[Rfam]
RNA sequence: CUUCCCAUUUGACUACCACUUCCUCAGUUUAUAGAUUAAGUGGCUAUGCUUAUGGGAUAAAGAAAAAAGUGCCAGAGUCUGAAGGAAAAGAUUGCAAAUAUCUUUUUCCUAUAUGAAAUGGCAGAACAUUCUACA
Number, nucleotide and partner (000 for none) at each position: 001c000002u000003u000004c056005c055006c054007a053008u000009u000010u000011g000012a000013c000014u000015a000016c043017c042018a041019c040020u000021u000022c000023c000024u000025c000026a000027g000028u000029u000030u000031a000032u000033a000034g000035a000036u000037u000038a000039a000040g019041u018042g017043g016044c000045u000046a000047u000048g000049c000050u000051u000052a000053u007054g006055g005056g004057a000058u000059a000060a000061a000062g000063a000064a000065a000066a000067a000068a000069g000070u000071g122072c121073c120074a119075g000076a000077g000078u000079c000080u000081g000082a000083a000084g000085g000086a000087a000088a110089a000090g108091a107092u000093u000094g000095c000096a000097a000098a000099u000100a000101u000102c000103u000104u000105u000106u000107u091108c090109c000110u088111a000112u000113a000114u000115g000116a000117a000118a000119u074120g073121g072122c071123a000124g000125a000126a000127c000128a000129u000130u000131c000132u000133a000134c000135a000
About this RNA
The family of this 135-nucleotide RNA from Crocodylus porosus is "Small nucleolar RNA SNORA29". The family has 26 seed sequences and 960 matches in Rfam 15.1. The base pairs follow the family's consensus structure, which was predicted with PFOLD. Taxonomically the source falls in Crocodylus (Eukaryota, Metazoa, Craniata, Archelosauria). Gene Ontology terms of the family: nucleolus and RNA processing. Rfam describes the family as follows. ACA29 is a member of the H/ACA class of snoRNA that guide the sites of modification of uridines to pseudouridines.